About this RNA
The family of this 88-nucleotide RNA sequence from Callosobruchus maculatus is "mir-16 microRNA precursor family".
[Rfam]
RNA sequence: UACUAGUAGUAGCAACAUAUAGAUAUUGGCGAACCAAUACUUUUUUAAAGUACUGCUGCCCAAUAUCUGUAUGUUGCUACUACUAGUA
Dot-bracket structure: (((.(((...((((((((...((((((((..............................))))))))...))))))))...))).)))
Numbered sequence: 001u002a003c004u005a006g007u008a009g010u011a012g013c014a015a016c017a018u019a020u021a022g023a024u025a026u027u028g029g030c031g032a033a034c035c036a037a038u039a040c041u042u043u044u045u046u047a048a049a050g051u052a053c054u055g056c057u058g059c060c061c062a063a064u065a066u067c068u069g070u071a072u073g074u075u076g077c078u079a080c081u082a083c084u085a086g087u088a
Stems, first nucleotide, its partner, number of pairs: 001088003005084003011078008022067008
Gene Ontology terms of the family: miRNA-mediated post-transcriptional gene silencing and RISC complex. Taxonomically the source falls in Callosobruchus (Eukaryota, Protostomia, Neuropteroidea, Cucujiformia). A search with the family's covariance model found it, with a score of 40 bits. Clan: mir-15 clan.